[Rfam]
RNA sequence: CGCGCGGACCGGGCCCCUCUGGCGCGGCGCGGGACUUGGCUGGAAGGCUCCGGCAAAUUCCGCGUCUCGUGAUGUCGGACCGCAUCG
Numbered sequence: 001c002g003c004g005c006g007g008a009c010c011g012g013g014c015c016c017c018u019c020u021g022g023c024g025c026g027g028c029g030c031g032g033g034a035c036u037u038g039g040c041u042g043g044a045a046g047g048c049u050c051c052g053g054c055a056a057a058u059u060c061c062g063c064g065u066c067u068c069g070u071g072a073u074g075u076c077g078g079a080c081c082g083c084a085u086c087g
Stems, first nucleotide, its partner, number of pairs: 006081002009078004022070003026066001028064007